[Rfam]
RNA sequence: AGCUUAGCGCAGUGGCAAUACCGUAACCAAUGAAGCCUCCCUGAGGUGCGGUUAUUGCUAGUUGAAAACUUUAACCAACCCACGCCAUGGGACGUGAAAUACCGUCCACUACGGCAAUUUUUGGAAGCCCUUACGAGGG
Dot-bracket structure: ...................(((((.(((.....((.....))..))))))))...............................((((..(((((((...)).)))))..)..)))............((((....))))
Numbered sequence: 001a002g003c004u005u006a007g008c009g010c011a012g013u014g015g016c017a018a019u020a021c022c023g024u025a026a027c028c029a030a031u032g033a034a035g036c037c038u039c040c041c042u043g044a045g046g047u048g049c050g051g052u053u054a055u056u057g058c059u060a061g062u063u064g065a066a067a068a069c070u071u072u073a074a075c076c077a078a079c080c081c082a083c084g085c086c087a088u089g090g091g092a093c094g095u096g097a098a099a100u101a102c103c104g105u106c107c108a109c110u111a112c113g114g115c116a117a118u119u120u121u122u123g124g125a126a127g128c129c130c131u132u133a134c135g136a137g138g139g
Stems, first nucleotide, its partner, number of pairs: 020052005026047003034042002084115003087110001090107005095101002128139004